[Rfam]
RNA: Small nucleolar RNA snoR104
Organism: Cannabis sativa
RNA sequence: GGGGAACAUCCAAAAGUUGAGAUGUUACCUGAUACAACCUUCCUAAAGAGAAUCUCUGCAUCUUUCCUACUUGUAGUGCUUGAGCAAGAUCUUCAAGUCUCAAUUAUGCAGGGACACAA
Numbered sequence: 001g002g003g004g005a006a007c008a009u010c011c012a013a014a015a016g017u018u019g020a021g022a023u024g025u026u027a028c029c030u031g032a033u034a035c036a037a038c039c040u041u042c043c044u045a046a047a048g049a050g051a052a053u054c055u056c057u058g059c060a061u062c063u064u065u066c067c068u069a070c071u072u073g074u075a076g077u078g079c080u081u082g083a084g085c086a087a088g089a090u091c092u093u094c095a096a097g098u099c100u101c102a103a104u105u106a107u108g109c110a111g112g113g114a115c116a117c118a119a
Stems, first nucleotide, its partner, number of pairs: 001030003005026006055112003069098005075092002079088002
Dot-bracket structure: (((.((((((..........)))))).)))........................(((...........(((((.((..((......))..)).)))))...........))).......